A member of the RNA family "MIR6274 microRNA precursor family" from Prunus avium, 105 nucleotides long.
NCBI's taxonomy places the organism under Eukaryota, Mesangiospermae, eudicotyledons, Pentapetalae, Prunus.
The family has 2 seed sequences and 342 matches in Rfam 15.1.
Rfam links the family to the GO terms RISC complex and miRNA-mediated post-transcriptional gene silencing.
The base pairs follow the family's consensus structure, which was predicted with RNAalifold.
[Rfam]
RNA sequence: CAAUAAUAUUUUUUGCUAUCCCUGGCCAAUAACGCAAUGACACAUAGGAUAACUUUUCCACGUGUCACUGUGUUGUUGGCCAGGAAAAGCAAAAUAGUACUAUCC
Numbered sequence: 001c002a003a004u005a006a007u008a009u010u011u012u013u014u015g016c017u018a019u020c021c022c023u024g025g026c027c028a029a030u031a032a033c034g035c036a037a038u039g040a041c042a043c044a045u046a047g048g049a050u051a052a053c054u055u056u057u058c059c060a061c062g063u064g065u066c067a068c069u070g071u072g073u074u075g076u077u078g079g080c081c082a083g084g085a086a087a088a089g090c091a092a093a094a095u096a097g098u099a100c101u102a103u104c105c
Base pairs, nucleotide, nucleotide: 003103004102005101011094012093013092014091015090016089017088019086021084022083023082024081025080026079027078028077029076030075031074032073033072034071035070036069038067039066040065041064042063043062045060047058048057049056